[Rfam]
RNA sequence: GCCGGGCUGCUGUAAAAGCGCAAGCCAAUGCGCUUUCCCUAGAGGGUUGGCAGCAAGCGGUAUCAUGCUGAAAGGCAGGGGUACCGCGGAAACAGCCGGGGAACCGGCAAA
Numbered sequence: 001g002c003c004g005g006g007c008u009g010c011u012g013u014a015a016a017a018g019c020g021c022a023a024g025c026c027a028a029u030g031c032g033c034u035u036u037c038c039c040u041a042g043a044g045g046g047u048u049g050g051c052a053g054c055a056a057g058c059g060g061u062a063u064c065a066u067g068c069u070g071a072a073a074g075g076c077a078g079g080g081g082u083a084c085c086g087c088g089g090a091a092a093c094a095g096c097c098g099g100g101g102a103a104c105c106g107g108c109a110a111a
Stems, first nucleotide, its partner, number of pairs: 037046003057087008066077003095108005
Mahella-1 RNA: a 111-nucleotide RNA sequence. Rfam classes the family as a small RNA.